This 83-nucleotide sequence from Ottowia beijingensis belongs to the Rfam family "Proteo-phage-1 RNA". The source organism's lineage runs through Bacteria, Pseudomonadati, Betaproteobacteria, Burkholderiales and Ottowia.
RNA sequence: CCCUAGCCGGGAGGGGCCGCAAGGCAUCACCCGGACGUGCCUUAGUCGGCGAGUGGCACGGUUCCAAACUAACCCCGACAGCC
Numbered sequence: 001c002c003c004u005a006g007c008c009g010g011g012a013g014g015g016g017c018c019g020c021a022a023g024g025c026a027u028c029a030c031c032c033g034g035a036c037g038u039g040c041c042u043u044a045g046u047c048g049g050c051g052a053g054u055g056g057c058a059c060g061g062u063u064c065c066a067a068a069c070u071a072a073c074c075c076c077g078a079c080a081g082c083c
Base pairs, nucleotide, nucleotide: 001015002014003013004012007034008033009032010031011030016025017024018023036060037059038058039057040056045079046078047077048076049075
By type it is a small RNA.
The family's consensus secondary structure is taken from published work.